[Rfam]
About this RNA: Shown here is a 102-nucleotide sequence from Erythrobacter neustonensis, a member of the family "Glycine riboswitch aptamer".
RNA sequence: GGCAGGCGAGCGGGAGAGCCCGAUGCACCCUUGAUCGGGGGCAAAGGCGCCGAAGGAGCAACCGCCCCGGAAACUCUCAGGCCAACGGACCGCUCGGCUGCG
Numbered sequence: 001g002g003c004a005g006g007c008g009a010g011c012g013g014g015a016g017a018g019c020c021c022g023a024u025g026c027a028c029c030c031u032u033g034a035u036c037g038g039g040g041g042c043a044a045a046g047g048c049g050c051c052g053a054a055g056g057a058g059c060a061a062c063c064g065c066c067c068c069g070g071a072a073a074c075u076c077u078c079a080g081g082c083c084a085a086c087g088g089a090c091c092g093c094u095c096g097g098c099u100g101c102g
Base pairs, nucleotide, nucleotide: 007096008095009094010093011092012091013090020047021046049082050081051080052078053077056076057075058074062070063069

The match comes from Rfam's covariance-model search (54 bits).
NCBI's taxonomy places the organism under Bacteria, Alphaproteobacteria, Sphingomonadales, Erythrobacteraceae, Erythrobacter.